[Rfam]
Notes:
The record is a 95-nucleotide sequence from Mangrovibacter sp. MFB070, which matches "sraA" in Rfam. Lineage of the source: Bacteria > Pseudomonadati > Pseudomonadota > Gammaproteobacteria > Mangrovibacter. A search with the family's covariance model found it, with a score of 76 bits.

RNA sequence: AAGUGAAACAGUAUAUGGGGAUAAUUCCCGGACAUUCAACGGCAGGCAGGCAGGAAAAAUAAAAGGGGGAUUAAAUCCCCCAUUUUUUGGUAACU
Numbered sequence: 001a002a003g004u005g006a007a008a009c010a011g012u013a014u015a016u017g018g019g020g021a022u023a024a025u026u027c028c029c030g031g032a033c034a035u036u037c038a039a040c041g042g043c044a045g046g047c048a049g050g051c052a053g054g055a056a057a058a059a060u061a062a063a064a065g066g067g068g069g070a071u072u073a074a075a076u077c078c079c080c081c082a083u084u085u086u087u088u089g090g091u092a093a094c095u
Stems, first nucleotide, its partner, number of pairs: 010036003016032001019029002061085003065081007